Bacterial large subunit ribosomal RNA: a 560-nucleotide part of an RNA from Chlorochromatium aggregatum. Pairs were carried over by alignment from the consensus structure, which is taken from published work.
RNA sequence: AAUUAAGAGCAUGUGGUGGAUGCCUUGGCAAUGAUAGGCGAUGAAGGACGUGGAAGCCUGCGAUAAGCUUCGGGGAGCUGGCAACGAGCUGUGAUCCGGAGAUUUCCGAAUGGGGGAACCUACCCUUUUGGGUAUUCUUGCCUGAAUAUAUAGGGCAAGAAAGCGAACCGGGUGAACUGAAACAUCUAAGUAGCCCGAGGAAAAGACAUCAACCGAGAUUCCGAGAGUAGUGGCGAGCGAAAUUGGAGAAGCCUGCAAGAGAUAGCGGUUUUUUUAGCAGAACGAUUUUGAAAGGUCGGCCGUAGUGGGUGAUAGCCCCGUAUGCGAAAAGAAGACCGUGGUACUGAGUUUGCGACAAGUAGGGCGGGACACGUGAAAUCCUGUCUGAAGAUGGGGGGACCAUCCUCCAAGGCUAAAUACUCAUCAUUGACCGAUAGUGAACAAGUACCGUGAGGGAAAGGUGAAAAGAACCCCGGGAGGGGAGUGAAAUAGAACCUGAAACCGCAUGCUUACAAAAAGUAGGAGCCCGAGAGGGUGACUGCGUACCUUUUGUAUAAUGG
Dot-bracket structure: ......((((((((((.....(((..(((((((((((((......((((((........))).....(((((((..(((.......))).....)))))))...)))....(((....)))((((....)))).(((((((((.........))))))))).))...((((((.....((....))......))))).).........((....))..((((((.....((.....))....)))))..((((.(((((...(.(((((((((((.(((...(((((......)))))..(...).(((.......)))...)))...))))))))))).).......)))))........((((((((.........))))))))......(((((......)))))..))))..)..)).))))))).))...............((....))....)).........((((....)))).............).....)))))))))).......((((..((((....))))..))))...(.(........).).
Its Rfam clan is "LSU clan". Lineage of the source: Bacteria > Chlorochromatium.